mir-193 microRNA precursor family: a 92-nucleotide RNA sequence from Drosophila melanogaster. A reference for the family is Cho et al. (2010), "Cloning and characterization of microRNAs from porcine skeletal muscle and adipose tissue", Mol Biol Rep. The source organism's lineage runs through Eukaryota, Dicondylia, Cyclorrhapha, Drosophilidae and Sophophora. Its family is annotated with RISC complex and miRNA-mediated post-transcriptional gene silencing in the Gene Ontology.

RNA sequence: UUAUUAUGGUUGGGAUUUUUUAGAUCAGCAGUUAUUGCUAUAUAGCCAUAUUUAUAAAUCUUCUACUGGCCUACUAAGUCCCAACAUAAUGA
Numbered sequence: 001u002u003a004u005u006a007u008g009g010u011u012g013g014g015a016u017u018u019u020u021u022a023g024a025u026c027a028g029c030a031g032u033u034a035u036u037g038c039u040a041u042a043u044a045g046c047c048a049u050a051u052u053u054a055u056a057a058a059u060c061u062u063c064u065a066c067u068g069g070c071c072u073a074c075u076a077a078g079u080c081c082c083a084a085c086a087u088a089a090u091g092a
Base pairs, nucleotide, nucleotide: 003090004089005088006087007086009085011083012082013081014080016078017077018076022072023071025069027067028066030064031063